[Rfam]
RNA sequence: AAGAGCUUAGAGCCAAAAAUGACUAAGGGGUUUGGCUCAAGAACAAAU
Number, nucleotide and partner (000 for none) at each position: 001a000002a000003g000004a000005g000006c000007u041008u040009a000010g038011a037012g036013c035014c034015a033016a032017a031018a000019a000020u000021g000022a000023c000024u000025a000026a000027g000028g000029g000030g000031u017032u016033u015034g014035g013036c012037u011038c010039a000040a008041g007042a000043a000044c000045a000046a000047a000048u000